[Rfam]
RNA: Small nucleolar RNA SNORD91 family
RNA sequence: UGGUGAAGUCAAUGAUGGUGUUACACAACAUGUCUGAACCUGUCUGAAGCAUCUCAGUGAUGCACUCUGUGUUCUGAGACUUCUCUGUCA
Numbered sequence: 001u002g003g004u005g006a007a008g009u010c011a012a013u014g015a016u017g018g019u020g021u022u023a024c025a026c027a028a029c030a031u032g033u034c035u036g037a038a039c040c041u042g043u044c045u046g047a048a049g050c051a052u053c054u055c056a057g058u059g060a061u062g063c064a065c066u067c068u069g070u071g072u073u074c075u076g077a078g079a080c081u082u083c084u085c086u087g088u089c090a
Stems, first nucleotide, its partner, number of pairs: 005083006